[Rfam]
RNA sequence: CCGUCGCUCGACACGACACAACAUUCUGCAGCAAUGUUGUGCGACCUGCAGUGUCUGUCGAGCCGCACCGG
Number, nucleotide and partner (000 for none) at each position: 001c071002c070003g069004u000005c000006g066007c065008u000009c060010g059011a058012c057013a056014c000015g000016a000017c000018a000019c000020a038021a037022c036023a035024u034025u033026c000027u000028g000029c000030a000031g000032c000033a025034a024035u023036g022037u021038u020039g000040u000041g000042c000043g055044a054045c053046c000047u000048g000049c000050a000051g000052u000053g045054u044055c043056u013057g012058u011059c010060g009061a000062g000063c000064c000065g007066c006067a000068c000069c003070g002071g001
RNA: bZIP non canonical Hac1/Xbp1 intron